[Rfam]
RNA sequence: AUCUGACACGCGCCGACGGUGUCCAGUCUGGGCCCGACUUUCGGUCGCGGAGCGAUGAC
Numbered sequence: 001a002u003c004u005g006a007c008a009c010g011c012g013c014c015g016a017c018g019g020u021g022u023c024c025a026g027u028c029u030g031g032g033c034c035c036g037a038c039u040u041u042c043g044g045u046c047g048c049g050g051a052g053c054g055a056u057g058a059c
Base pairs, nucleotide, nucleotide: 007049009047010046013043015042016041018035019034021033022032023031024030025029
The record is a 59-nucleotide RNA sequence from Pseudideonella sakaiensis, which matches "Selenocysteine insertion sequence 3" in Rfam. The literature on the family includes a 1996 paper in RNA by Huttenhofer et al., "Solution structure of mRNA hairpins promoting selenocysteine incorporation in Escherichia coli and their base-specific interaction with special elongation factor SELB". A search with the family's covariance model found it, with a score of 69 bits.